Rfam assigns this 166-nucleotide RNA sequence from Triticum urartu to the family "MIR2118 microRNA precursor family". The literature on the family includes a 2009 paper in Genome Res by Johnson et al., "Clusters and superclusters of phased small RNAs in the developing inflorescence of rice". The source organism's lineage runs through Eukaryota, Poales, Triticodae, Triticinae and Triticum.
RNA sequence: GCUAGGAAGAGGAAGAAAUAGUCGAAGAGCGGUGAGAAUGGGAGCACGGAGGAAACCCUGAGCUAUCGGUCUGUGCCUCUGGAAACAGAGGUGCAUAUCUGCCUCGGUGUUUCCCCUUGCUUCCCAUUUCUAUUGUUCUAGGUUCUCCUUCCCCUUCCUCUUACCA
Numbered sequence: 001g002c003u004a005g006g007a008a009g010a011g012g013a014a015g016a017a018a019u020a021g022u023c024g025a026a027g028a029g030c031g032g033u034g035a036g037a038a039u040g041g042g043a044g045c046a047c048g049g050a051g052g053a054a055a056c057c058c059u060g061a062g063c064u065a066u067c068g069g070u071c072u073g074u075g076c077c078u079c080u081g082g083a084a085a086c087a088g089a090g091g092u093g094c095a096u097a098u099c100u101g102c103c104u105c106g107g108u109g110u111u112u113c114c115c116c117u118u119g120c121u122u123c124c125c126a127u128u129u130c131u132a133u134u135g136u137u138c139u140a141g142g143u144u145c146u147c148c149u150u151c152c153c154c155u156u157c158c159u160c161u162u163a164c165c166a
Stems, first nucleotide, its partner, number of pairs: 009157004015151003021147001023142001026139006033132002036129008045119002049115001051114006